This 38-nucleotide RNA sequence from Ricinus communis belongs to the Rfam family "Plastid psbT antisense RNA". Taxonomically the source falls in Ricinus (Eukaryota, Spermatophyta, eudicotyledons, Gunneridae). Rfam's curators write: Plastid-psbT-asRNA is an antisense RNA (asRNA) motif reported in Plastids It has been shown that psbT expression is controlled by two antisense RNAs originated from psbN transcription by the nuclear-encoded polymerase (NEP), in which the short antisense RNA hybridizes to psbT CDS, thereby stabilizing psbT transcript while blocking its translation during photooxidative stress. The base pairs follow the family's consensus structure, which was predicted with LocARNA. A search with the family's covariance model found it, with a score of 55 bits. For this family Rfam cites "Retrograde signaling in plants: A critical review focusing on the GUN pathway and beyond" (Richter et al., Plant Commun, 2023).
RNA sequence: GUAGUCGGACCUCCAAUUUUUUGGAAUGCUCCAAAUUC
Numbered sequence: 001g002u003a004g005u006c007g008g009a010c011c012u013c014c015a016a017u018u019u020u021u022u023g024g025a026a027u028g029c030u031c032c033a034a035a036u037u038c
Base pairs, nucleotide, nucleotide: 003018004017005016007014008013020035021034022033023032024031025030